[Rfam]
RNA sequence: CCAACCGAGGAGCGUUGCAGCGUCCAGCCACGGACGCGAGGCUCGGCUAUCCAUGCAACGACGCUCACCCACU
Dot-bracket structure: ..(.((((............(((((......)))))......)))).).........................
Numbered sequence: 001c002c003a004a005c006c007g008a009g010g011a012g013c014g015u016u017g018c019a020g021c022g023u024c025c026a027g028c029c030a031c032g033g034a035c036g037c038g039a040g041g042c043u044c045g046g047c048u049a050u051c052c053a054u055g056c057a058a059c060g061a062c063g064c065u066c067a068c069c070c071a072c073u
Stems, first nucleotide, its partner, number of pairs: 003048001005046004021036005
The record is a 73-nucleotide sequence from Ramlibacter montanisoli, which matches "SAH (S-adenosyl-L-homocysteine) riboswitch aptamer" in Rfam. NCBI's taxonomy places the organism under Bacteria, Pseudomonadati, Burkholderiales, Comamonadaceae, Ramlibacter.